[Rfam]
RNA sequence: CCGUUCGUUACAAACACGCUUGGCAGUGGCGGGGGAACCAAAUACAGGAUCCAAGAGGUCUUGAGGGCAACCAGCCCUUGGGGUUAAGCGAUCGAAGCAGAAUCUGCUCCGGCCGCCGGGUGACUCCCACUCGAACCCGACAGCUCACCUCGUAGACAUAGGGAGAGGUAAA
Numbered sequence: 001c002c003g004u005u006c007g008u009u010a011c012a013a014a015c016a017c018g019c020u021u022g023g024c025a026g027u028g029g030c031g032g033g034g035g036a037a038c039c040a041a042a043u044a045c046a047g048g049a050u051c052c053a054a055g056a057g058g059u060c061u062u063g064a065g066g067g068c069a070a071c072c073a074g075c076c077c078u079u080g081g082g083g084u085u086a087a088g089c090g091a092u093c094g095a096a097g098c099a100g101a102a103u104c105u106g107c108u109c110c111g112g113c114c115g116c117c118g119g120g121u122g123a124c125u126c127c128c129a130c131u132c133g134a135a136c137c138c139g140a141c142a143g144c145u146c147a148c149c150u151c152g153u154a155g156a157c158a159u160a161g162g163g164a165g166a167g168g169u170a171a172a
Stems, first nucleotide, its partner, number of pairs: 008158001011155001015028003029153006039080002081138003089115002092112003118132004

Annotation:
This 172-nucleotide RNA sequence from Zhihengliuella halotolerans belongs to the Rfam family "c-di-AMP riboswitch aptamer (ydaO/yuaA leader)". The match comes from Rfam's covariance-model search (52 bits).